Rfam assigns this 46-nucleotide RNA from Orchesella cincta to the family "Histone 3' UTR stem-loop". The match comes from Rfam's covariance-model search (37 bits).
RNA sequence: CCAACGGCUCUUUUAAGAGCCACCACAUUUUCCUAAGAGCAAAACC
Numbered sequence: 001c002c003a004a005c006g007g008c009u010c011u012u013u014u015a016a017g018a019g020c021c022a023c024c025a026c027a028u029u030u031u032c033c034u035a036a037g038a039g040c041a042a043a044a045c046c
Stems, first nucleotide, its partner, number of pairs: 006021006

Source information:
On this family, see Zhang et al., Proc Natl Acad Sci U S A 2014: "Molecular mechanisms for the regulation of histone mRNA stem-loop-binding protein by phosphorylation". Rfam classes the family as a cis-regulatory element. From the family's description: The mRNAs of metazoan histone genes lack a poly-A tail. 3' end processing occurs at a site between a highly conserved stem-loop (modelled by this family) and a purine rich region around 20 nts downstream (the histone downstream element, or HDE). The stem-loop is bound by a 31 kDa stem-loop binding protein (SLBP - also termed the histone hairpin binding protein, or HBP). Together with U7 snRNA binding of the HDE, SLBP binding nucleate s the formation of the processing complex. The histone 3' UTR stem-loop is also involved in nucleocytoplasmic transport of the mRNA, and in stability regulation and translation efficiency in the cytoplasm.